Background
Rfam assigns this 45-nucleotide RNA sequence from Zophobihabitans entericus to the family "PreQ1 (pre queuosine) riboswitch aptamer". A search with the family's covariance model found it, with a score of 53 bits. The family has 43 seed sequences and 873 matches in Rfam 15.1. Lineage of the source: Bacteria > Pseudomonadati > Pseudomonadota > Gammaproteobacteria > Zophobihabitans. Rfam links the family to the GO term queuosine biosynthetic process. On this family, see Reader et al., J Biol Chem 2004: "Identification of four genes necessary for biosynthesis of the modified nucleoside queuosine".
RNA sequence: AAACACGUGGUUCGAAAUCCUCCCACGCAAAAAAACUAAGGAACA
Numbered sequence: 001a002a003a004c005a006c007g008u009g010g011u012u013c014g015a016a017a018u019c020c021u022c023c024c025a026c027g028c029a030a031a032a033a034a035a036c037u038a039a040g041g042a043a044c045a
Base pairs, nucleotide, nucleotide: 006027007026008025009024010023016037